[Rfam]
Source information
Rfam assigns this 131-nucleotide sequence from Cyprinodon variegatus to the family "Small Cajal body specific RNA 8". Taxonomically the source falls in Cyprinodon (Eukaryota, Deuterostomia, Craniata, Clupeocephala). Rfam 15.1 lists 955 matches to the family in 741 species. Rfam describes the family as follows. scaRNAs are a specific class of small nuclear RNAs which localise to the Cajal bodies and guide the modification of RNA polymerase II transcribed spliceosomal RNAs U1, U2, U4, U5 and U12. Gene Ontology terms of the family: nucleolus, Cajal body and RNA processing.
RNA sequence: CGGGAGGCAGAUACCUGGGCAGUCCUAAGCAGUGGUCUGUCCGUCACUGGUCCUCCCAAGAGCAUCCCUGCUUUCUGAUGACCGCGGCGAAUUGAGAGAAAUCGCCACGGACAGAUACGGAGCAGACACUU
Numbered sequence: 001c002g003g004g005a006g007g008c009a010g011a012u013a014c015c016u017g018g019g020c021a022g023u024c025c026u027a028a029g030c031a032g033u034g035g036u037c038u039g040u041c042c043g044u045c046a047c048u049g050g051u052c053c054u055c056c057c058a059a060g061a062g063c064a065u066c067c068c069u070g071c072u073u074u075c076u077g078a079u080g081a082c083c084g085c086g087g088c089g090a091a092u093u094g095a096g097a098g099a100a101a102u103c104g105c106c107a108c109g110g111a112c113a114g115a116u117a118c119g120g121a122g123c124a125g126a127c128a129c130u131u
Stems, first nucleotide, its partner, number of pairs: 002057006016043003022037001024035002068125007082110003087105004